[Rfam]
RNA sequence: CUCUUAUCAAGAGAGAUGGAGGGACCUGGCCCUAUGAUAUCUCGGCAACCUGUAUGUACGGUGCCAAAUCCAGCAGAGCCAUUCUGAAAGAUAAGAG
Numbered sequence: 001c002u003c004u005u006a007u008c009a010a011g012a013g014a015g016a017u018g019g020a021g022g023g024a025c026c027u028g029g030c031c032c033u034a035u036g037a038u039a040u041c042u043c044g045g046c047a048a049c050c051u052g053u054a055u056g057u058a059c060g061g062u063g064c065c066a067a068a069u070c071c072a073g074c075a076g077a078g079c080c081a082u083u084c085u086g087a088a089a090g091a092u093a094a095g096a097g
Stems, first nucleotide, its partner, number of pairs: 001097008013043005021032003026073004044065004049061002069089001074086005
Background
A member of the RNA family "SAM riboswitch aptamer (S box leader)" from Evansella caseinilytica, 97 nucleotides long. Pairs were carried over by alignment from the consensus structure, which is taken from published work. Rfam's curators write: The SAM riboswitch is found upstream of a number of genes which code for proteins involved in methionine or cysteine biosynthesis in Gram-positive bacteria. The SAM riboswitch acts at the level of transcription termination control. The predicted structure consists of a complex stem-loop region followed by a single stem loop terminator region. An alternative and mutually exclusive form involves bases in the 3' segment of helix 1 with those in the 5' region of helix 5 to form a structure termed the anti-terminator form. This entry represents the conserved core of the complex structure involving helices 1-4. Taxonomically the source falls in Evansella (Bacteria, Bacillati, Caryophanales, Bacillaceae).